[Rfam]
RNA sequence: GGUGUUCAGGAUCAUCCCCCCCUGAUCCUGAACACCGACGGCCCCGGCUCCCCCCGCCGGGGCCGUCCCCU
Numbered sequence: 001g002g003u004g005u006u007c008a009g010g011a012u013c014a015u016c017c018c019c020c021c022c023u024g025a026u027c028c029u030g031a032a033c034a035c036c037g038a039c040g041g042c043c044c045c046g047g048c049u050c051c052c053c054c055c056g057c058c059g060g061g062g063c064c065g066u067c068c069c070c071u
Stems, first nucleotide, its partner, number of pairs: 002035012037067012
This 71-nucleotide sequence from Serinicoccus chungangensis belongs to the Rfam family "6C RNA". Lineage of the source: Bacteria > Actinomycetes > Micrococcales > Ornithinimicrobiaceae > Serinicoccus. The family's consensus secondary structure is taken from published work. A reference for the family is Weinberg et al. (2007), "Identification of 22 candidate structured RNAs in bacteria using the CMfinder comparative genomics pipeline", Nucleic Acids Res. It scores 65 bits against the family's covariance model. It is annotated as a cis-regulatory element.